The record is a 51-nucleotide RNA, which matches "DUF3800-VI RNA" in Rfam.
RNA sequence: CGGUUGGGAGGGCUGCCAUUGCAGUUCGCCGGACUUCGGUUCGCCCGGCUG
Numbered sequence: 001c002g003g004u005u006g007g008g009a010g011g012g013c014u015g016c017c018a019u020u021g022c023a024g025u026u027c028g029c030c031g032g033a034c035u036u037c038g039g040u041u042c043g044c045c046c047g048g049c050u051g
Base pairs, nucleotide, nucleotide: 001051002050003049004048005047006046007045008044010027011026012025013024014023015022016021030043031042032041033040034039
The family's RNA type in Rfam is cis-regulatory element. Pairs were carried over by alignment from the consensus structure, which is taken from published work.